The record is a 104-nucleotide sequence from Thalassobaculum fulvum, which matches "TPP riboswitch aptamer (THI element)" in Rfam.
[Rfam]
RNA sequence: UACGUGAUGCUGGGGUGCCUGCCGUGUCGUGCGGCGGGCUGAGAUCACACCCAUCGAACCUGAACCGGGUCACGCCGGCGGAGGGAGACGUCACGGUCUUGGAC
Numbered sequence: 001u002a003c004g005u006g007a008u009g010c011u012g013g014g015g016u017g018c019c020u021g022c023c024g025u026g027u028c029g030u031g032c033g034g035c036g037g038g039c040u041g042a043g044a045u046c047a048c049a050c051c052c053a054u055c056g057a058a059c060c061u062g063a064a065c066c067g068g069g070u071c072a073c074g075c076c077g078g079c080g081g082a083g084g085g086a087g088a089c090g091u092c093a094c095g096g097u098c099u100u101g102g103a104c
Base pairs, nucleotide, nucleotide: 006092007091008090009089011053012052013051014050016047017039018038019037020036021035022034023033024032025031059084060083061082065078066077067076068075

The match comes from Rfam's covariance-model search (58 bits).